[Rfam]
The family of this 75-nucleotide sequence from Myotis lucifugus is "mir-9223 microRNA precursor family". NCBI's taxonomy places the organism under Eukaryota, Deuterostomia, Teleostomi, Sarcopterygii, Myotis. A search with the family's covariance model found it, with a score of 79 bits.
RNA sequence: GAUGGUUCUCGGGUAACACACCCCGGAAUCAGGCUCCCUCCUCUUUGGUUCCGGGUGUGUCACCCAAGAACCACA
Numbered sequence: 001g002a003u004g005g006u007u008c009u010c011g012g013g014u015a016a017c018a019c020a021c022c023c024c025g026g027a028a029u030c031a032g033g034c035u036c037c038c039u040c041c042u043c044u045u046u047g048g049u050u051c052c053g054g055g056u057g058u059g060u061c062a063c064c065c066a067a068g069a070a071c072c073a074c075a
Base pairs, nucleotide, nucleotide: 003073005071006070007069008068009067011065012064013063014062016060017059019057020056021055022054023053025052026051027050028049029048030047031046032045033044